[Rfam]
RNA sequence: UGAUACCCAGAGUCAAAAAGUCGUAAGUCUGCCGCAAGCUUGCCUGCAUGAAGAUUUCUGACCUUGGGACUCGCCGAAAACAUGAGUAAGCAGCCAUUUCCCAAAGAAAAAUGCGCGGAUCACGAAUGUUUUUGAGGAUUGUAAGAGUACGAAGUACGGAAUAAUCCGGUAUCA
Numbered sequence: 001u002g003a004u005a006c007c008c009a010g011a012g013u014c015a016a017a018a019a020g021u022c023g024u025a026a027g028u029c030u031g032c033c034g035c036a037a038g039c040u041u042g043c044c045u046g047c048a049u050g051a052a053g054a055u056u057u058c059u060g061a062c063c064u065u066g067g068g069a070c071u072c073g074c075c076g077a078a079a080a081c082a083u084g085a086g087u088a089a090g091c092a093g094c095c096a097u098u099u100c101c102c103a104a105a106g107a108a109a110a111a112u113g114c115g116c117g118g119a120u121c122a123c124g125a126a127u128g129u130u131u132u133u134g135a136g137g138a139u140u141g142u143a144a145g146a147g148u149a150c151g152a153a154g155u156a157c158g159g160a161a162u163a164a165u166c167c168g169g170u171a172u173c174a
Base pairs, nucleotide, nucleotide: 001174002173003172004171005170006169007168011071012070013069014068018064020062021061022060023059025057026056027055028054029053030052032050034047035046036045038043076133077132078131079130080129081128082127083126086123087122089120093116094115095113096112097111098110099109136167137166138165139164140163141162142161147157148156149155150154
The record is a 174-nucleotide sequence from Blautia faecicola, which matches "Clostridiales-1 RNA" in Rfam. NCBI's taxonomy places the organism under Bacteria, Bacillati, Lachnospirales, Lachnospiraceae, Blautia. By type it is a small RNA. The family's consensus secondary structure is taken from published work.